Description:
Rfam assigns this 57-nucleotide RNA from Sophora tonkinensis to the family "Plastid-rps18 3UTR RNA". Rfam's curators write: Plastid rps18 is a non-coding RNA (ncRNA) present in plastids. It was identified as a short stem-loop motif in the 3 prime untranslate region (3UTR) of rps18 gene. Lineage of the source: Eukaryota > Viridiplantae > Streptophyta > Mesangiospermae > Sophora. It is one of the family's seed sequences. Rfam classes the family as a cis-regulatory element.
Nucleotides: 057
Stems, first nucleotide, its partner, number of pairs: 018037005024031002
Number, partner (000 for none) and nucleotide at each position: 001000u002000g003000c004000a005000a006000c007000u008000a009000u010000u011000u012000u013000a014000c015000g016000a017000u018037u019036a020035a021034g022033g023000a024031g025030c026000a027000a028000u029000u030025g031024c032000c033022u034021c035020u036019u037018g038000u039000a040000u041000a042000g043000a044000u045000u046000a047000u048000c049000c050000a051000u052000u053000a054000a055000a056000u057000u